RNA: Eukaryotic large subunit ribosomal RNA, nucleotides 429 to 679
RNA sequence: CGGAGACAGUUGAUGUUGCUUGGAGACAAGCUUGGUGACUGGUCGCUUAGUUGUGAUCGUUGCCGGGUGUCGUUUCCUAUGCUACGCCGACGGCGUUGGCUGCUCGUUCUAGCCCGACAGUGUUGCCCAUCUCGCAAGAGAAGGUGUCUUGCUGGCGGUAGUGGGUUCGUGGCGGCUAGCGUUUAGUUACGCUAGUGUGUGUGACGUCGGUGUGAAAGUCGACGACGUUUCCGACCCGUCUUGAAACACGG
Dot-bracket structure: (((((((.((((.......(.(((((..............................................))))).)....(((((((....................................................................................................................)))))))......))))...)))))))..((((........))))